[Rfam]
RNA sequence: CUAACCGUGAGGUUAGGACUGAAGGAAGCGAGACUACAAAACUCGGUACUGAGGUACACGAACCGCAUAUUGAGGCUAUUAGAUCGGAUCAGUAGGCACAUCACUGCGAAGUCCAAAAUACUGUUUUUUUUUUUCAGUAAGUAUCGAACUAGUAGAUGCGGCAGGAAUCGAGUGAAAGAAGAUGUC
Numbered sequence: 001c002u003a004a005c006c007g008u009g010a011g012g013u014u015a016g017g018a019c020u021g022a023a024g025g026a027a028g029c030g031a032g033a034c035u036a037c038a039a040a041a042c043u044c045g046g047u048a049c050u051g052a053g054g055u056a057c058a059c060g061a062a063c064c065g066c067a068u069a070u071u072g073a074g075g076c077u078a079u080u081a082g083a084u085c086g087g088a089u090c091a092g093u094a095g096g097c098a099c100a101u102c103a104c105u106g107c108g109a110a111g112u113c114c115a116a117a118a119u120a121c122u123g124u125u126u127u128u129u130u131u132u133u134u135c136a137g138u139a140a141g142u143a144u145c146g147a148a149c150u151a152g153u154a155g156a157u158g159c160g161g162c163a164g165g166a167a168u169c170g171a172g173u174g175a176a177a178g179a180a181g182a183u184g185u186c
Stems, first nucleotide, its partner, number of pairs: 001016006028186001031183001037178001041173006047166001049164003063161006075153003079148002082145003086114004092107004

The record is a 186-nucleotide RNA from Aquimarina sp. TRL1, which matches "Group II catalytic intron D1-D4-3" in Rfam. Gene Ontology term of the family: Group II intron splicing.